[Rfam]
RNA sequence: AAGACGGACAAGGGAGAAUCUGGCCCAUGUCAGUGCCGAAGGAGCAACCGCCCCGGUAAACUCUCAGGCAAAAGGACCGGUCCGUCGA
Numbered sequence: 001a002a003g004a005c006g007g008a009c010a011a012g013g014g015a016g017a018a019u020c021u022g023g024c025c026c027a028u029g030u031c032a033g034u035g036c037c038g039a040a041g042g043a044g045c046a047a048c049c050g051c052c053c054c055g056g057u058a059a060a061c062u063c064u065c066a067g068g069c070a071a072a073a074g075g076a077c078c079g080g081u082c083c084g085u086c087g088a
Stems, first nucleotide, its partner, number of pairs: 005084005012078002020033004035069003038065002042063003048056002
RNA: Glycine riboswitch aptamer
Organism: Pseudothioclava arenosa